Shown here is a 134-nucleotide RNA from Pantherophis guttatus, a member of the family "Small nucleolar RNA SNORA72". The source organism's lineage runs through Eukaryota, Bifurcata, Colubroidea, Colubridae and Pantherophis. The family's consensus secondary structure was predicted with PFOLD. On this family, see Ganot et al., Genes Dev 1997: "The family of box ACA small nucleolar RNAs is defined by an evolutionarily conserved secondary structure and ubiquitous sequence elements essential for RNA accumulation".
RNA sequence: AUGCGAAUAUUCUCGCUGUUCUGGUUUGUACAGUAAUCAGUGCAGGCUAGACAUUCGCUAUAUUACCACUUUGCAUUGUGUCCUCAGGGCUAGUUGGUCUCUCUAGUUCUGAUUUUUACCUGCAAGUUACAUUA
Numbered sequence: 001a002u003g004c005g006a007a008u009a010u011u012c013u014c015g016c017u018g019u020u021c022u023g024g025u026u027u028g029u030a031c032a033g034u035a036a037u038c039a040g041u042g043c044a045g046g047c048u049a050g051a052c053a054u055u056c057g058c059u060a061u062a063u064u065a066c067c068a069c070u071u072u073g074c075a076u077u078g079u080g081u082c083c084u085c086a087g088g089g090c091u092a093g094u095u096g097g098u099c100u101c102u103c104u105a106g107u108u109c110u111g112a113u114u115u116u117u118a119c120c121u122g123c124a125a126g127u128u129a130c131a132u133u134a
Stems, first nucleotide, its partner, number of pairs: 003058003016045004021040006068127004073123002084112010
U72 is a member of the H/ACA class of snoRNAs. The snoRNA gene is located in intron 4 of the ribosomal L30 protein gene in human, mouse and chicken.